RNA sequence: CACCGAGUCCGGGGCUCCGGUGGUCACUGGAGCCUGGUGCACAAGGGA
Numbered sequence: 001c002a003c004c005g006a007g008u009c010c011g012g013g014g015c016u017c018c019g020g021u022g023g024u025c026a027c028u029g030g031a032g033c034c035u036g037g038u039g040c041a042c043a044a045g046g047g048a
Base pairs, nucleotide, nucleotide: 013034014033015032016031017030018029019028020027
Dot-bracket structure: ............((((((((......))))))))..............